[Rfam]
RNA sequence: CCAGCCGGCCGGGCGACCGCUGCCGCAAUCGUCGAAAGACGGCGGGGGAGGAAAGUCCGGGCUCCAAGGAGGAACGGUGCCGGGUAACGCCCGGCGGGGGUGACCCCAGGGACAGUGCCACAGAGAGCAGACCGCCUCGCCGCCUUCGGGUCGCGAGGUAAGGGUGAAAGGGUGGGGUAAGAGCCCACCGCGCGGCCGGCAACGGUCGCGGCAUGGUAAACCCCACCGGGAGCAAGACCGAAUAGGGACGACGUGGCGGGUAACCGCCGGCCCGCUCCGGGCCAGUCGUCCGGGUAGGUUGCACGAGGCGCCGCGCGAGCGGCGUCCCAGAGGAAUGGUCGCCGCACGGCUUCGGCCGUCGCACAGAACCCGGCUUACAGGCCGGCUGGCUCU
Numbered sequence: 001c002c003a004g005c006c007g008g009c010c011g012g013g014c015g016a017c018c019g020c021u022g023c024c025g026c027a028a029u030c031g032u033c034g035a036a037a038g039a040c041g042g043c044g045g046g047g048g049a050g051g052a053a054a055g056u057c058c059g060g061g062c063u064c065c066a067a068g069g070a071g072g073a074a075c076g077g078u079g080c081c082g083g084g085u086a087a088c089g090c091c092c093g094g095c096g097g098g099g100g101u102g103a104c105c106c107c108a109g110g111g112a113c114a115g116u117g118c119c120a121c122a123g124a125g126a127g128c129a130g131a132c133c134g135c136c137u138c139g140c141c142g143c144c145u146u147c148g149g150g151u152c153g154c155g156a157g158g159u160a161a162g163g164g165u166g167a168a169a170g171g172g173u174g175g176g177g178u179a180a181g182a183g184c185c186c187a188c189c190g191c192g193c194g195g196c197c198g199g200c201a202a203c204g205g206u207c208g209c210g211g212c213a214u215g216g217u218a219a220a221c222c223c224c225a226c227c228g229g230g231a232g233c234a235a236g237a238c239c240g241a242a243u244a245g246g247g248a249c250g251a252c253g254u255g256g257c258g259g260g261u262a263a264c265c266g267c268c269g270g271c272c273c274g275c276u277c278c279g280g281g282c283c284a285g286u287c288g289u290c291c292g293g294g295u296a297g298g299u300u301g302c303a304c305g306a307g308g309c310g311c312c313g314c315g316c317g318a319g320c321g322g323c324g325u326c327c328c329a330g331a332g333g334a335a336u337g338g339u340c341g342c343c344g345c346a347c348g349g350c351u352u353c354g355g356c357c358g359u360c361g362c363a364c365a366g367a368a369c370c371c372g373g374c375u376u377a378c379a380g381g382c383c384g385g386c387u388g389g390c391u392c393u
Stems, first nucleotide, its partner, number of pairs: 001389010011378001012343007020048002023045004053376003057373005062232004071277002075228005080094005095109001096107004110223002115221002117217003132163002134159007142151003171189006190212001191210008236300004246291006269283005307326008
Annotation:
Shown here is a 393-nucleotide RNA from Aureimonas sp. Leaf324, a member of the family "Bacterial RNase P class A". It scores 292 bits against the family's covariance model. Rfam links the family to the GO terms ribonuclease P activity, tRNA processing and dimeric ribonuclease P complex. Lineage of the source: Bacteria > Pseudomonadota > Alphaproteobacteria > Aurantimonadaceae > Aureimonas.